[Rfam]
This 162-nucleotide sequence from Microcaecilia unicolor belongs to the Rfam family "MIR7725 microRNA precursor family".
Gene Ontology terms of the family: miRNA-mediated post-transcriptional gene silencing and RISC complex.

RNA sequence: CGCAGCGUCAGUGAAGGAGGCGGCGCUCCCGACGUCUCUAGCCUUCCCUUCGCUAUGUUCCACCUUCUUCUGACGUCAAGGAAAUGACGUCAGAAGAAGGCGGAACACAGCGAAGGGAAGGCUAGAGACGUCGGGAGCGCCGCCUCCUUCACUGACGCUGCU
Numbered sequence: 001c002g003c004a005g006c007g008u009c010a011g012u013g014a015a016g017g018a019g020g021c022g023g024c025g026c027u028c029c030c031g032a033c034g035u036c037u038c039u040a041g042c043c044u045u046c047c048c049u050u051c052g053c054u055a056u057g058u059u060c061c062a063c064c065u066u067c068u069u070c071u072g073a074c075g076u077c078a079a080g081g082a083a084a085u086g087a088c089g090u091c092a093g094a095a096g097a098a099g100g101c102g103g104a105a106c107a108c109a110g111c112g113a114a115g116g117g118a119a120g121g122c123u124a125g126a127g128a129c130g131u132c133g134g135g136a137g138c139g140c141c142g143c144c145u146c147c148u149u150c151a152c153u154g155a156c157g158c159u160g161c162u
Base pairs, nucleotide, nucleotide: 002161003160005158006157007156008155009154010153012151013150014149015148016147017146018145020143021142022141023140024139025138026137027136028135029134030133031132032131033130034129036127037126038125041122042121043120044119046117047116048115049114050113051112052111053110054109056107057106059104060103063100064099066097067096068095069094070093071092072091073090074089075088076087077086078085